[Rfam]
RNA sequence: AUGAUAUUAUAAAAUCUAGAUAGUCCAUCUUAGCCAUCUUUAGCUCCCGGUUUUUUUGGACUAUCCCUUGAAAUCCAAAAUGUUU
Numbered sequence: 001a002u003g004a005u006a007u008u009a010u011a012a013a014a015u016c017u018a019g020a021u022a023g024u025c026c027a028u029c030u031u032a033g034c035c036a037u038c039u040u041u042a043g044c045u046c047c048c049g050g051u052u053u054u055u056u057u058g059g060a061c062u063a064u065c066c067c068u069u070g071a072a073a074u075c076c077a078a079a080a081u082g083u084u085u
Stems, first nucleotide, its partner, number of pairs: 019065009032052004
A member of the RNA family "rhtB sRNA" from Pelagibacterales bacterium SAG-MED20, 85 nucleotides long. Pairs were carried over by alignment from the consensus structure, which is taken from published work. Lineage of the source: Bacteria > Pseudomonadati > Pseudomonadota > Alphaproteobacteria > Candidatus Pelagibacterales. By type it is a small RNA.